Shown here is a 101-nucleotide sequence from Phascolarctobacterium succinatutens, a member of the family "SAM riboswitch aptamer (S box leader)". Rfam's curators write: The SAM riboswitch is found upstream of a number of genes which code for proteins involved in methionine or cysteine biosynthesis in Gram-positive bacteria. The SAM riboswitch acts at the level of transcription termination control. The predicted structure consists of a complex stem-loop region followed by a single stem loop terminator region. It scores 83 bits against the family's covariance model. The organism belongs to Phascolarctobacterium succinatutens, within Bacteria.
[Rfam]
RNA sequence: CUCUUAUCAAGAGUGGCGGAGGGAACAGGCCCGAUGAUGCCCGGCAACCAGACAAAUGUUAUGGUGCUACAUCCUGCAAGUGUAAUCUUGAAAGAUGAGAG
Number, nucleotide and partner (000 for none) at each position: 001c101002u100003c099004u098005u097006a096007u095008c094009a000010a000011g000012a000013g042014u000015g041016g040017c039018g000019g000020a000021g032022g031023g030024a000025a000026c076027a075028g074029g073030c023031c022032c021033g000034a000035u000036g000037a000038u000039g017040c016041c015042c013043g068044g067045c066046a065047a000048c064049c063050a000051g060052a059053c058054a000055a000056a000057u000058g053059u052060u051061a000062u000063g049064g048065u046066g045067c044068u043069a000070c000071a000072u093073c029074c028075u027076g026077c090078a089079a088080g087081u000082g000083u000084a000085a000086u000087c080088u079089u078090g077091a000092a000093a072094g008095a007096u006097g005098a004099g003100a002101g001